The record is a 120-nucleotide RNA from Limosilactobacillus panis, which matches "PyrR binding site" in Rfam. About the family: This family represents the PyrR binding site and terminator structure. It scores 55 bits against the family's covariance model. A reference for the family is Bonner et al. (2001), "Molecular recognition of pyr mRNA by the Bacillus subtilis attenuation regulatory protein PyrR", Nucleic Acids Res.

[Rfam]
RNA sequence: AUGUCCUUUAAGUUAGUCCCGUGAGGCUAGUAAGGUUCGGCUAUAAUAACGCGAGUACCAGAUAAGACCCUGGUAUUAGUGAACCCCUAGACGAAACGGCUUUGUCUAGGGGCUUUUCUU
Numbered sequence: 001a002u003g004u005c006c007u008u009u010a011a012g013u014u015a016g017u018c019c020c021g022u023g024a025g026g027c028u029a030g031u032a033a034g035g036u037u038c039g040g041c042u043a044u045a046a047u048a049a050c051g052c053g054a055g056u057a058c059c060a061g062a063u064a065a066g067a068c069c070c071u072g073g074u075a076u077u078a079g080u081g082a083a084c085c086c087c088u089a090g091a092c093g094a095a096a097c098g099g100c101u102u103u104g105u106c107u108a109g110g111g112g113c114u115u116u117u118c119u120u
Stems, first nucleotide, its partner, number of pairs: 003037001005035004013030006050081003054077008082114001084112011